[Rfam]
RNA sequence: ACACGGAAAGGAGGUGGUUCGAUCUAUGAGUGACUAUCGGACAUGUGAGGUGGCGGCGGGCUGACUUCCGCCGUGGCUGGCGGGUAGCCGGCCAAUCCACCGUCGUCACCCAGACCCGCGGGCGCCGGGAGUCCACCGGCCACCUCCUGCUCCGGCAGGACGUGAAGUGCCCGCGGGUCUGUUCCGU
Numbered sequence: 001a002c003a004c005g006g007a008a009a010g011g012a013g014g015u016g017g018u019u020c021g022a023u024c025u026a027u028g029a030g031u032g033a034c035u036a037u038c039g040g041a042c043a044u045g046u047g048a049g050g051u052g053g054c055g056g057c058g059g060g061c062u063g064a065c066u067u068c069c070g071c072c073g074u075g076g077c078u079g080g081c082g083g084g085u086a087g088c089c090g091g092c093c094a095a096u097c098c099a100c101c102g103u104c105g106u107c108a109c110c111c112a113g114a115c116c117c118g119c120g121g122g123c124g125c126c127g128g129g130a131g132u133c134c135a136c137c138g139g140c141c142a143c144c145u146c147c148u149g150c151u152c153c154g155g156c157a158g159g160a161c162g163u164g165a166a167g168u169g170c171c172c173g174c175g176g177g178u179c180u181g182u183u184c185c186g187u
Base pairs, nucleotide, nucleotide: 014057015056017054018053059093060092061091062090063089065087067084068083069082070081072080111181112180113179114178115177116176117175118174119173120172121171122170123169124140125139126138127137128136